This 63-nucleotide sequence belongs to the Rfam family "Fluoride riboswitch aptamer (crcB RNA motif)".
The match comes from Rfam's covariance-model search (52 bits).
The base pairs follow the family's consensus structure, which is taken from published work.
RNA sequence: CGGCACGCUGGAGAUGACAUUCCUCCCUAACCGCCUUCACAGGCUGAUGAUGUCUACGUAACC
Number, nucleotide and partner (000 for none) at each position: 001c000002g000003g000004c000005a000006c000007g000008c000009u000010g026011g025012a024013g023014a000015u000016g054017a053018c052019a051020u050021u049022c000023c013024u012025c011026c010027c000028u000029a000030a000031c000032c000033g044034c043035c042036u041037u000038c000039a000040c000041a036042g035043g034044c033045u000046g000047a000048u000049g021050a020051u019052g018053u017054c016055u000056a000057c000058g000059u000060a000061a000062c000063c000